RNA sequence: AUAAGUCUUUGUGGCAGGGUGAGAGUCCCUACCGAUGGUAUAGUCCAUGACCCGCGAGAGCGGCUGAUCUGGUGACCUUUAUGGAAUUCCAGAACCGACGGUACAGUCCGGAUGAGAAAAGACAUUU
Numbered sequence: 001a002u003a004a005g006u007c008u009u010u011g012u013g014g015c016a017g018g019g020u021g022a023g024a025g026u027c028c029c030u031a032c033c034g035a036u037g038g039u040a041u042a043g044u045c046c047a048u049g050a051c052c053c054g055c056g057a058g059a060g061c062g063g064c065u066g067a068u069c070u071g072g073u074g075a076c077c078u079u080u081a082u083g084g085a086a087u088u089c090c091a092g093a094a095c096c097g098a099c100g101g102u103a104c105a106g107u108c109c110g111g112a113u114g115a116g117a118a119a120a121g122a123c124a125u126u127u
Stems, first nucleotide, its partner, number of pairs: 003125001005123006017029003031107002033097002035048004043095002052063002068093005099110003
Shown here is a 127-nucleotide sequence from Dorea sp. AF36-15AT, a member of the family "FMN riboswitch aptamer (RFN element)". The RFN element is a highly conserved domain that is found frequently in the 5'-untranslated regions of prokaryotic mRNAs that encode for flavin mononucleotide (FMN) biosynthesis and transport proteins. This element is a metabolite-dependent riboswitch that directly binds FMN in the absence of proteins. In Bacillus subtilis, the riboswitch most likely controls gene expression by causing premature transcription termination within the 5' untranslated region of the ribDEAHT operon and precluding access to the ribosome-binding site of ypaA mRNA.The FMN riboswitch structure, reported in present an FMN-bound six-stem junction, adopts a butterfly-like scaffold, stapled together by opposingly directed but nearly identically folded peripheral domains.